[Rfam]
Nucleotides: 053
Base pairs, nucleotide, nucleotide: 009025010024011023012022013021027043028042029041030040031039
Number, partner (000 for none) and nucleotide at each position: 001000c002000g003000g004000g005000a006000a007000g008000a009025g010024a011023g012022g013021g014000a015000u016000u017000c018000g019000a020000a021013c022012c023011c024010u025009c026000g027043g028042u029041a030040c031039g032000a033000a034000u035000a036000a037000c038000a039031c040030g041029u042028a043027u044000a045000a046000c047000g048000g049000a050000u051000u052000a053000g